Annotation
This 61-nucleotide RNA sequence from Rhodobacteraceae bacterium PARR1 belongs to the Rfam family "terC RNA".

RNA sequence: UCUGGUGACCGGGCCCCUCUGGCGAAAGUCUUGCGACGCUUUCGUGAUGUCGGCACCACAU
Numbered sequence: 001u002c003u004g005g006u007g008a009c010c011g012g013g014c015c016c017c018u019c020u021g022g023c024g025a026a027a028g029u030c031u032u033g034c035g036a037c038g039c040u041u042u043c044g045u046g047a048u049g050u051c052g053g054c055a056c057c058a059c060a061u
Stems, first nucleotide, its partner, number of pairs: 006055002009053004022045008
Pairs were carried over by alignment from the consensus structure, which is taken from published work.